[Rfam]
RNA sequence: AGUUGCAAGGUCAGGGUCACUGCAGACGCGCUCACGCCGCGGCCCGGGCAGAUUCCACCGAGUCUGUGAAUUCUGCU
Number, nucleotide and partner (000 for none) at each position: 001a000002g000003u000004u000005g000006c000007a000008a000009g000010g000011u000012c000013a000014g045015g044016g043017u042018c041019a000020c000021u000022g076023c075024a074025g073026a072027c000028g040029c039030g038031c000032u000033c000034a000035c000036g000037c000038c030039g029040c028041g018042g017043c016044c015045c014046g000047g000048g000049c066050a065051g064052a063053u062054u061055c060056c000057a000058c000059c000060g055061a054062g053063u052064c051065u050066g049067u000068g000069a000070a000071u000072u026073c025074u024075g023076c022077u000
Shown here is a 77-nucleotide RNA sequence from Crocodylus porosus, a member of the family "Mammalian CPEB3 ribozyme". Rfam links the family to the GO term RNA nuclease activity. NCBI's taxonomy places the organism under Eukaryota, Metazoa, Sarcopterygii, Sauropsida, Crocodylus. From the family's description: The mammalian CPEB3 ribozyme is a self cleaving RNA located in the second intron of the CPEB3 gene which belongs to a family of genes regulating messenger RNA polyadenylation.